The family of this 70-nucleotide RNA sequence from Collichthys lucidus is "miR-430 microRNA precursor family". A reference for the family is Giraldez et al. (2005), "MicroRNAs regulate brain morphogenesis in zebrafish", Science. The organism belongs to Collichthys, within Eukaryota. Gene Ontology terms of the family: RISC complex and miRNA-mediated post-transcriptional gene silencing. Rfam 15.1 lists 24,817 matches to the family in 105 species.
[Rfam]
RNA sequence: AUUAUUACCCUACCAGAAACAUUGACUUUGGUUCUCAAUGCAGUAAGUGCUUUUUGUUGGGGUAGACAAC
Numbered sequence: 001a002u003u004a005u006u007a008c009c010c011u012a013c014c015a016g017a018a019a020c021a022u023u024g025a026c027u028u029u030g031g032u033u034c035u036c037a038a039u040g041c042a043g044u045a046a047g048u049g050c051u052u053u054u055u056g057u058u059g060g061g062g063u064a065g066a067c068a069a070c
Base pairs, nucleotide, nucleotide: 005065006064007063008062009061010060011059014056015055016054017053018051020049021048022047023046025044026043027042